Rfam assigns this 92-nucleotide RNA from Bifidobacterium aquikefiri to the family "Fluoride riboswitch aptamer (crcB RNA motif)". The match comes from Rfam's covariance-model search (36 bits). The source organism's lineage runs through Bacteria, Bacillati, Actinomycetota, Bifidobacteriaceae and Bifidobacterium. The base pairs follow the family's consensus structure, which is taken from published work.
[Rfam]
RNA sequence: UUGUCUUCUGGCGAUGGAACCCGCCGAGAUACCAGGAUCUCCAUAAGAUUUCGGUUGUCUGAACCGCACAUGCUGAUAGUUCCUACGUACGG
Numbered sequence: 001u002u003g004u005c006u007u008c009u010g011g012c013g014a015u016g017g018a019a020c021c022c023g024c025c026g027a028g029a030u031a032c033c034a035g036g037a038u039c040u041c042c043a044u045a046a047g048a049u050u051u052c053g054g055u056u057g058u059c060u061g062a063a064c065c066g067c068a069c070a071u072g073c074u075g076a077u078a079g080u081u082c083c084u085a086c087g088u089a090c091g092g
Base pairs, nucleotide, nucleotide: 010025011024012023013022016083017082018081019080020079066073067072
Dot-bracket structure: .........[[[[..(((((.]]]]........................................((....)).....))))).........